The record is a 141-nucleotide RNA from Vibrio campbellii, which matches "FMN riboswitch aptamer (RFN element)" in Rfam. The sequence is in the family's curated seed alignment. Its family is annotated with FMN binding in the Gene Ontology. The family's consensus secondary structure is taken from published work.

RNA sequence: CAAUGUUCUCAGGGCGGGGCGAAAUUCCCCACCGGCGGUAUACUCUUUUGAGUGAGCCCGCGAGCGCUCGAUUCGUCGAGGUCAGCAGAUCUGGUGAGAUGCCAGAGCCGACGGUUAUAGUCCGGAUGAAAGAGAAUAAGA
Numbered sequence: 001c002a003a004u005g006u007u008c009u010c011a012g013g014g015c016g017g018g019g020c021g022a023a024a025u026u027c028c029c030c031a032c033c034g035g036c037g038g039u040a041u042a043c044u045c046u047u048u049u050g051a052g053u054g055a056g057c058c059c060g061c062g063a064g065c066g067c068u069c070g071a072u073u074c075g076u077c078g079a080g081g082u083c084a085g086c087a088g089a090u091c092u093g094g095u096g097a098g099a100u101g102c103c104a105g106a107g108c109c110g111a112c113g114g115u116u117a118u119a120g121u122c123c124g125g126a127u128g129a130a131a132g133a134g135a136a137u138a139a140g141a
Stems, first nucleotide, its partner, number of pairs: 004138007017029003031121002033110002035061004056108002064086002090106005112124003